[Rfam]
RNA sequence: CAUAGAGGAACUUCUACGUUGUCCACGUCCUGUGGACAACGUAGAAGUCAGCACAUCCUGUGGC
Numbered sequence: 001c002a003u004a005g006a007g008g009a010a011c012u013u014c015u016a017c018g019u020u021g022u023c024c025a026c027g028u029c030c031u032g033u034g035g036a037c038a039a040c041g042u043a044g045a046a047g048u049c050a051g052c053a054c055a056u057c058c059u060g061u062g063g064c
Stems, first nucleotide, its partner, number of pairs: 011047007022036005051064001052062003

A member of the RNA family "Bacillaceae-1 RNA" from Virgibacillus necropolis, 64 nucleotides long. A search with the family's covariance model found it, with a score of 46 bits. It is annotated as a small RNA. The organism belongs to Virgibacillus, within Bacteria.